[Rfam]
RNA sequence: AGCCUGUGAUGUUUGAGAUUGUCCGUACCAUCUGAGUUUCUCCUUGACGAUUACCUCCACUUUCUGAGGCUU
Numbered sequence: 001a002g003c004c005u006g007u008g009a010u011g012u013u014u015g016a017g018a019u020u021g022u023c024c025g026u027a028c029c030a031u032c033u034g035a036g037u038u039u040c041u042c043c044u045u046g047a048c049g050a051u052u053a054c055c056u057c058c059a060c061u062u063u064c065u066g067a068g069g070c071u072u
Stems, first nucleotide, its partner, number of pairs: 001071004
Rfam assigns this 72-nucleotide sequence to the family "small nucleolar RNA snoR117". Rfam 15.1 lists 419 matches to the family in 211 species. Gene Ontology terms of the family: RNA processing and nucleolus. The family's RNA type in Rfam is C/D-box small nucleolar RNA. It is one of the family's seed sequences.